Small nucleolar RNA SNORA57: a 134-nucleotide RNA sequence from Owenia fusiformis. Rfam's curators write: U99 belongs to the H/ACA class of snoRNAs which are thought to guide the sites of modification of uridines to pseudouridines, the target for this family is unknown. Rfam links the family to the GO terms nucleolus and RNA processing. The literature on the family includes a 2003 paper in Nucleic Acids Res by Vitali et al., "Identification of 13 novel human modification guide RNAs".
RNA sequence: CCUCUUGUCAAUGGCAUGACCAAUCUGUGUAGUGAUUGAUUGUGAAUAAAACUGAGGUAUAUCAAUGGUGGAUUUCGUCUUCGGUGCCAAGUUAAUAACAUAACUUGGGUCUAUCCUUACAAUCCACAACACAA
Numbered sequence: 001c002c003u004c005u006u007g008u009c010a011a012u013g014g015c016a017u018g019a020c021c022a023a024u025c026u027g028u029g030u031a032g033u034g035a036u037u038g039a040u041u042g043u044g045a046a047u048a049a050a051a052c053u054g055a056g057g058u059a060u061a062u063c064a065a066u067g068g069u070g071g072a073u074u075u076c077g078u079c080u081u082c083g084g085u086g087c088c089a090a091g092u093u094a095a096u097a098a099c100a101u102a103a104c105u106u107g108g109g110u111c112u113a114u115c116c117u118u119a120c121a122a123u124c125c126a127c128a129a130c131a132c133a134a
Stems, first nucleotide, its partner, number of pairs: 001057004015044005022037004069126006087108007